[Rfam]
RNA sequence: AGUCUGUUUCAGGGCGGGGUGCAAUUCCCCACCGGCAGUGAUGCGAAAGCGAGUCUGCGCGCCGGGGCUUCGGCUCCCGGCUGAUUCGGUGCAAAUCCGAAACCGACGGUAUAGUCCGGAUGAAAGAAACGGUGC
Numbered sequence: 001a002g003u004c005u006g007u008u009u010c011a012g013g014g015c016g017g018g019g020u021g022c023a024a025u026u027c028c029c030c031a032c033c034g035g036c037a038g039u040g041a042u043g044c045g046a047a048a049g050c051g052a053g054u055c056u057g058c059g060c061g062c063c064g065g066g067g068c069u070u071c072g073g074c075u076c077c078c079g080g081c082u083g084a085u086u087c088g089g090u091g092c093a094a095a096u097c098c099g100a101a102a103c104c105g106a107c108g109g110u111a112u113a114g115u116c117c118g119g120a121u122g123a124a125a126g127a128a129a130c131g132g133u134g135c
Stems, first nucleotide, its partner, number of pairs: 004132007017029003031115002033105002035058004053103002061081003085101005107118003